[Rfam]
RNA sequence: UCCUCACGAAUCUCUCAAGAUACGAGUCUUCUGGACACGAAUCAUUCAUGCAUGUGGGAAAUUCGGAGUAAGCCUCAAACCCACCACCAUCCGCUGUUCUCAGUGGUAUUGGCUGGUCUGCCGGUAACGGCCUGGCGUCAAUGCUACGUCUGCAAAUGAUAUCAGAAAUCUCAGAGCGGCGCUCGUUUUCGUCGUACUCUAUGGGAAGUCUUUGCGAGGCUUGUUUUGGACAAACUGAAGUGCGAUACGCGGCGUCCUGUUUGCUUACGAGCAGGAUGACUCAAUUCCGAUCACUCUGGGGAGGG
Numbered sequence: 001u002c003c004u005c006a007c008g009a010a011u012c013u014c015u016c017a018a019g020a021u022a023c024g025a026g027u028c029u030u031c032u033g034g035a036c037a038c039g040a041a042u043c044a045u046u047c048a049u050g051c052a053u054g055u056g057g058g059a060a061a062u063u064c065g066g067a068g069u070a071a072g073c074c075u076c077a078a079a080c081c082c083a084c085c086a087c088c089a090u091c092c093g094c095u096g097u098u099c100u101c102a103g104u105g106g107u108a109u110u111g112g113c114u115g116g117u118c119u120g121c122c123g124g125u126a127a128c129g130g131c132c133u134g135g136c137g138u139c140a141a142u143g144c145u146a147c148g149u150c151u152g153c154a155a156a157u158g159a160u161a162u163c164a165g166a167a168a169u170c171u172c173a174g175a176g177c178g179g180c181g182c183u184c185g186u187u188u189u190c191g192u193c194g195u196a197c198u199c200u201a202u203g204g205g206a207a208g209u210c211u212u213u214g215c216g217a218g219g220c221u222u223g224u225u226u227u228g229g230a231c232a233a234a235c236u237g238a239a240g241u242g243c244g245a246u247a248c249g250c251g252g253c254g255u256c257c258u259g260u261u262u263g264c265u266u267a268c269g270a271g272c273a274g275g276a277u278g279a280c281u282c283a284a285u286u287c288c289g290a291u292c293a294c295u296c297u298g299g300g301g302a303g304g305g
Stems, first nucleotide, its partner, number of pairs: 001305004007299001009297001013252002016249001024038001026036003064289005073219004120131004134150005152215005158209001173200003254277009
Annotation:
This 305-nucleotide RNA from Fusarium longipes belongs to the Rfam family "Nuclear RNase P". Rfam links the family to the GO terms tRNA processing, ribonuclease P complex and ribonuclease P activity. The source organism's lineage runs through Eukaryota, Dikarya, Ascomycota, Fusarium and Fusarium sambucinum species complex. Rfam's curators write: Ribonuclease P (RNase P) is a ubiquitous endoribonuclease, found in archaea, bacteria and eukarya as well as chloroplasts and mitochondria.